[Rfam]
RNA sequence: ACGAAACGACAGGGGAGCGCGCGAGCGCUGAGAGUGCGGCACCAGACCGCAGACCCUCCGAACCUGCACCGGUUAGCACCGGCGAAGGAAGUCGCAAGGAGACGACG
Numbered sequence: 001a002c003g004a005a006a007c008g009a010c011a012g013g014g015g016a017g018c019g020c021g022c023g024a025g026c027g028c029u030g031a032g033a034g035u036g037c038g039g040c041a042c043c044a045g046a047c048c049g050c051a052g053a054c055c056c057u058c059c060g061a062a063c064c065u066g067c068a069c070c071g072g073u074u075a076g077c078a079c080c081g082g083c084g085a086a087g088g089a090a091g092u093c094g095c096a097a098g099g100a101g102a103c104g105a106c107g
Stems, first nucleotide, its partner, number of pairs: 007094004011057004017028004035051005063088003069082004
Rfam assigns this 107-nucleotide RNA sequence from Ornithinimicrobium avium to the family "TPP riboswitch aptamer (THI element)". NCBI's taxonomy places the organism under Bacteria, Bacillati, Actinomycetota, Ornithinimicrobiaceae, Ornithinimicrobium. The family's consensus secondary structure is taken from published work. The match comes from Rfam's covariance-model search (58 bits). Rfam links the family to the GO term thiamine pyrophosphate binding.